[Rfam]
RNA sequence: CAAUGGCCCCGAAGGGGUGAGUUGCGCAGCAGAGAAUAACCCUCGUGGUUCGAGCCGAGCGUAGCGAGACCACGUCGGAGCUUGCGACGACAGCCCGAAGGGUGAGGAGUGAAACGACGAGUAAUCCCUCCCUCACCGCCA
Numbered sequence: 001c002a003a004u005g006g007c008c009c010c011g012a013a014g015g016g017g018u019g020a021g022u023u024g025c026g027c028a029g030c031a032g033a034g035a036a037u038a039a040c041c042c043u044c045g046u047g048g049u050u051c052g053a054g055c056c057g058a059g060c061g062u063a064g065c066g067a068g069a070c071c072a073c074g075u076c077g078g079a080g081c082u083u084g085c086g087a088c089g090a091c092a093g094c095c096c097g098a099a100g101g102g103u104g105a106g107g108a109g110u111g112a113a114a115c116g117a118c119g120a121g122u123a124a125u126c127c128c129u130c131c132c133u134c135a136c137c138g139c140c141a
Stems, first nucleotide, its partner, number of pairs: 015132003019128001021126001023124001037104002040102002049099004056066002074091004